Source information: Shown here is a 53-nucleotide RNA from Escherichia coli, a member of the family "Anti stx2 sRNA". Increases expression of the ChuS heme oxygenase via destabilisation of FnrS sRNA. Lineage of the source: Bacteria > Pseudomonadati > Enterobacteriaceae > Escherichia > Escherichia coli. The literature on the family includes a 2014 paper in Mol Cell by Tree et al., "Identification of bacteriophage-encoded anti-sRNAs in pathogenic Escherichia coli". Rfam links the family to the GO term positive regulation of translation, ncRNA-mediated.

[Rfam]
RNA sequence: CGAUUAUAAAAAUGUAUAUCUCAUGCUGUUGCCCGAACCCACUCGGGCUUUUU
Number, nucleotide and partner (000 for none) at each position: 001c000002g000003a000004u000005u000006a000007u000008a000009a000010a000011a000012a000013u000014g022015u000016a000017u000018a000019u000020c000021u000022c014023a000024u000025g000026c000027u000028g000029u000030u000031g048032c047033c046034c045035g044036a043037a000038c000039c000040c000041a000042c000043u036044c035045g034046g033047g032048c031049u000050u000051u000052u000053u000

The family's RNA type in Rfam is small RNA.